[Rfam]
RNA sequence: GAACACCCGCACGGCAAAGCGCAGCGAGCCGCCGUUAGCAAGUCUUGAGUGCUGUCUGGUAACAGACAGGGCUAAGCGUAGACAGCAAGGGAGCAGGGCUGCAAUGCUAUAGAGCCCCGAAACUUCACAAAGUCUCAGAGGACGACGCAGUUUAUCCAUGUGGAAGGCAGCAUCGCGGCACGAGAUAUCACGAGUGUGCCGCGGCUCUGGCGGGGUCUGAGGGCC
Number, nucleotide and partner (000 for none) at each position: 001g000002a000003a000004c000005a000006c000007c000008c000009g000010c000011a000012c034013g033014g032015c000016a000017a000018a000019g029020c028021g000022c000023a000024g191025c000026g000027a000028g020029c019030c000031g000032c014033c013034g012035u000036u088037a000038g086039c085040a000041a000042g083043u082044c081045u080046u078047g077048a073049g072050u071051g000052c069053u068054g067055u066056c065057u064058g063059g000060u000061a000062a000063c058064a057065g056066a055067c054068a053069g052070g000071g050072c049073u048074a000075a000076g000077c047078g046079u000080a045081g044082a043083c042084a000085g039086c038087a000088a036089g000090g000091g000092a000093g000094c000095a000096g000097g000098g000099c000100u000101g000102c000103a000104a000105u000106g000107c000108u000109a000110u000111a000112g217113a000114g216115c215116c214117c213118c212119g211120a000121a000122a000123c000124u000125u000126c000127a000128c000129a000130a000131a000132g000133u000134c000135u210136c209137a208138g207139a206140g205141g168142a000143c166144g000145a000146c162147g161148c160149a159150g000151u000152u000153u000154a000155u000156c000157c000158a000159u149160g148161u147162g146163g000164a000165a000166g143167g000168c141169a000170g000171c000172a000173u204174c203175g202176c201177g200178g199179c198180a197181c196182g195183a000184g000185a000186u000187a000188u000189c000190a000191c024192g000193a000194g000195u182196g181197u180198g179199c178200c177201g176202c175203g174204g173205c140206u139207c138208u137209g136210g135211c119212g118213g117214g116215g115216u114217c112218u000219g000220a000221g000222g000223g000224c000225c000
Description
Rfam assigns this 225-nucleotide sequence from Blautia pseudococcoides to the family "Group II catalytic intron D1-D4-6". The match comes from Rfam's covariance-model search (146 bits). A reference for the family is Lehmann and Schmidt (2003), "Group II introns: structure and catalytic versatility of large natural ribozymes", Crit Rev Biochem Mol Biol. From the family's description: Group II introns are found in rRNA, tRNA and mRNA of organelles in fungi, plants and protists, and also in mRNA in bacteria. NCBI's taxonomy places the organism under Bacteria, Bacillota, Lachnospirales, Lachnospiraceae, Blautia.